[Rfam]
Nucleotides: 078
Base pairs, nucleotide, nucleotide: 014026016024017023034074036072041068042067046063047062048061050059052057
Number, partner (000 for none) and nucleotide at each position: 001000c002000u003000u004000g005000a006000u007000c008000g009000a010000a011000c012000c013000c014026a015000a016024c017023c018000a019000c020000a021000a022000a023017g024016g025000c026014u027000c028000u029000c030000c031000g032000g033000g034074c035000u036072c037000c038000g039000c040000c041068c042067g043000a044000u045000c046063u047062u048061g049000c050059c051000c052057g053000u054000a055000g056000g057052u058000c059050g060000c061048c062047a063046a064000c065000a066000a067042c068041g069000c070000c071000u072036g073000c074034g075000c076000c077000u078000c

Description: ASpks TB sRNA: a 78-nucleotide RNA sequence from Mycobacterium spongiae. For this family Rfam cites "Identification of small RNAs in Mycobacterium tuberculosis" (Arnvig and Young, Mol Microbiol, 2009). It is annotated as an antisense RNA. It scores 72 bits against the family's covariance model.